[Rfam]
RNA: Glycine riboswitch aptamer
Organism: Qipengyuania vulgaris
RNA sequence: CGGGCGCGCAUGGGAGAGACUGUUCGGGGACACCCCGUAUAGCGCCGAAGGAGCAACCGCCCCGGAAACUCUCAGGCACAUGGACCGUGCGCUGCCA
Numbered sequence: 001c002g003g004g005c006g007c008g009c010a011u012g013g014g015a016g017a018g019a020c021u022g023u024u025c026g027g028g029g030a031c032a033c034c035c036c037g038u039a040u041a042g043c044g045c046c047g048a049a050g051g052a053g054c055a056a057c058c059g060c061c062c063c064g065g066a067a068a069c070u071c072u073c074a075g076g077c078a079c080a081u082g083g084a085c086c087g088u089g090c091g092c093u094g095c096c097a
Stems, first nucleotide, its partner, number of pairs: 006092008020042004044077003047073002051071003057065002